[Rfam]
This 80-nucleotide RNA sequence from Pipistrellus kuhlii belongs to the Rfam family "mir-31 microRNA precursor family". The match comes from Rfam's covariance-model search (76 bits). On this family, see Aravin et al., Dev Cell 2003: "The small RNA profile during Drosophila melanogaster development". Taxonomically the source falls in Pipistrellus (Eukaryota, Eumetazoa, Gnathostomata, Mammalia).
RNA sequence: AACUGGAGGGGAGGCAAGAUGCUGGCAUAGCUGUUGACCUGAGAACCUGCUAUGCCAACAUAUUGCCAUCUCUCUGGUUC
Numbered sequence: 001a002a003c004u005g006g007a008g009g010g011g012a013g014g015c016a017a018g019a020u021g022c023u024g025g026c027a028u029a030g031c032u033g034u035u036g037a038c039c040u041g042a043g044a045a046c047c048u049g050c051u052a053u054g055c056c057a058a059c060a061u062a063u064u065g066c067c068a069u070c071u072c073u074c075u076g077g078u079u080c
Stems, first nucleotide, its partner, number of pairs: 005075007013067005019061003023057009